This 176-nucleotide RNA sequence from Punica granatum belongs to the Rfam family "Antisense RNA which regulates isiA expression".
A search with the family's covariance model found it, with a score of 142 bits.
The base pairs follow the family's consensus structure, which was predicted with PFOLD.

[Rfam]
RNA sequence: AAUAACCAAAUAUAACACUUGAGCUAAGGAUCAAGUUGGUAAUUUUUCGUACAUCUUCCCGUAUCAUAUAGGGCUCCAAAAUAAAGAGCCUUGAAUACUAGAAGAAAAGCACCCAUUCCUAACAAGAUUAAGUGAAUACACAAAAUUGUGGUCAUUUUGUUGCGGGGCUCACUCGA
Numbered sequence: 001a002a003u004a005a006c007c008a009a010a011u012a013u014a015a016c017a018c019u020u021g022a023g024c025u026a027a028g029g030a031u032c033a034a035g036u037u038g039g040u041a042a043u044u045u046u047u048c049g050u051a052c053a054u055c056u057u058c059c060c061g062u063a064u065c066a067u068a069u070a071g072g073g074c075u076c077c078a079a080a081a082u083a084a085a086g087a088g089c090c091u092u093g094a095a096u097a098c099u100a101g102a103a104g105a106a107a108a109g110c111a112c113c114c115a116u117u118c119c120u121a122a123c124a125a126g127a128u129u130a131a132g133u134g135a136a137u138a139c140a141c142a143a144a145a146u147u148g149u150g151g152u153c154a155u156u157u158u159g160u161u162g163c164g165g166g167g168c169u170c171a172c173u174c175g176a
Stems, first nucleotide, its partner, number of pairs: 131173005139164001141162003
Dot-bracket structure: ..................................................................................................................................(((((...(.(((................))).)....)))))...